[Rfam]
RNA sequence: UGAGUUGGUUAGACAAUCGCUGGUUUAUUGAAGCCCUUAAUUGUUCGCAAGAACGACCUAGCGGGACAAGUAAACGAGAGGAAAGUCCGAGCUACACAGGGCAGAGUGCCAGAUAACGUCUGGGCGGUGUGAACCGACGACCAGUGCAACAGAGAGCAAACCGCCGAUGUGCAUUAGCGCAGGUAAGGGUGAAAGGGUGCGGUAAGAGCGCACCGCGUGGGUGGCAACAUUCCACGGCACGGUAAACUCCACUCGUAGCAAGACCAAAUAGGAACUCAAUGGAUGGCCCGUCCAGAGUUCGGGUAGGUUGCUUGAGCUUGUGUGUGAAUGCAAGCCUAGAGGAAUGAUUGUCCGCGACAGAACUCGGCUUAUCGACCAACUCACUUU
Numbered sequence: 001u002g003a004g005u006u007g008g009u010u011a012g013a014c015a016a017u018c019g020c021u022g023g024u025u026u027a028u029u030g031a032a033g034c035c036c037u038u039a040a041u042u043g044u045u046c047g048c049a050a051g052a053a054c055g056a057c058c059u060a061g062c063g064g065g066a067c068a069a070g071u072a073a074a075c076g077a078g079a080g081g082a083a084a085g086u087c088c089g090a091g092c093u094a095c096a097c098a099g100g101g102c103a104g105a106g107u108g109c110c111a112g113a114u115a116a117c118g119u120c121u122g123g124g125c126g127g128u129g130u131g132a133a134c135c136g137a138c139g140a141c142c143a144g145u146g147c148a149a150c151a152g153a154g155a156g157c158a159a160a161c162c163g164c165c166g167a168u169g170u171g172c173a174u175u176a177g178c179g180c181a182g183g184u185a186a187g188g189g190u191g192a193a194a195g196g197g198u199g200c201g202g203u204a205a206g207a208g209c210g211c212a213c214c215g216c217g218u219g220g221g222u223g224g225c226a227a228c229a230u231u232c233c234a235c236g237g238c239a240c241g242g243u244a245a246a247c248u249c250c251a252c253u254c255g256u257a258g259c260a261a262g263a264c265c266a267a268a269u270a271g272g273a274a275c276u277c278a279a280u281g282g283a284u285g286g287c288c289c290g291u292c293c294a295g296a297g298u299u300c301g302g303g304u305a306g307g308u309u310g311c312u313u314g315a316g317c318u319u320g321u322g323u324g325u326g327a328a329u330g331c332a333a334g335c336c337u338a339g340a341g342g343a344a345u346g347a348u349u350g351u352c353c354g355c356g357a358c359a360g361a362a363c364u365c366g367g368c369u370u371a372u373c374g375a376c377c378a379a380c381u382c383a384c385u386u387u
Stems, first nucleotide, its partner, number of pairs: 001383010011372001012352007020078002023075006083370003087367005092258004099289004104254005109123005124138001125136004139249002144247002146243002161188002163184003168181005196214006215238001216236005221230003262309004272300006280294005316335008
A member of the RNA family "Bacterial RNase P class A" from Actinobacillus pleuropneumoniae, 387 nucleotides long. Its family is annotated with dimeric ribonuclease P complex, ribonuclease P activity and tRNA processing in the Gene Ontology. Rfam classes the family as a ribozyme. Rfam's curators put it in the seed alignment. The organism belongs to Actinobacillus pleuropneumoniae serovar 1, within Bacteria. The base pairs follow the family's consensus structure, which is taken from published work.